[Rfam]
RNA sequence: AAUGAAAAAGCCAAACCUGUCGCGAGGCAGGGACGGAAAGCCACAGGUCUUAUGAAGACAGCUGGGUUGCCAUUA
Numbered sequence: 001a002a003u004g005a006a007a008a009a010g011c012c013a014a015a016c017c018u019g020u021c022g023c024g025a026g027g028c029a030g031g032g033a034c035g036g037a038a039a040g041c042c043a044c045a046g047g048u049c050u051u052a053u054g055a056a057g058a059c060a061g062c063u064g065g066g067u068u069g070c071c072a073u074u075a
Stems, first nucleotide, its partner, number of pairs: 003072002011036002016031006034061001039068004044064003047059003
RNA: c-di-GMP-I-GGC riboswitch aptamer